[Rfam]
RNA sequence: GGUUAUGAGUGUCAGCGUCAAGCCCUGGCUUGCUGACCGGCAACCCUCCUACGCGGUGGGGUGCUCCAGGUGAUGACCCGGUACGUCCGACCGGACGUGCAAGCGCGAUGU
Numbered sequence: 001g002g003u004u005a006u007g008a009g010u011g012u013c014a015g016c017g018u019c020a021a022g023c024c025c026u027g028g029c030u031u032g033c034u035g036a037c038c039g040g041c042a043a044c045c046c047u048c049c050u051a052c053g054c055g056g057u058g059g060g061g062u063g064c065u066c067c068a069g070g071u072g073a074u075g076a077c078c079c080g081g082u083a084c085g086u087c088c089g090a091c092c093g094g095a096c097g098u099g100c101a102a103g104c105g106c107g108a109u110g111u
Stems, first nucleotide, its partner, number of pairs: 001078004009038001011037006021030002039065003044061003048056002081100008
The family of this 111-nucleotide RNA from Branchiibius sp. NY16-3462-2 is "SAM (S-adenosyl methionine) riboswitch aptamer". Pairs were carried over by alignment from the consensus structure, which is taken from published work. The match comes from Rfam's covariance-model search (104 bits). Its Rfam clan is "SAM clan".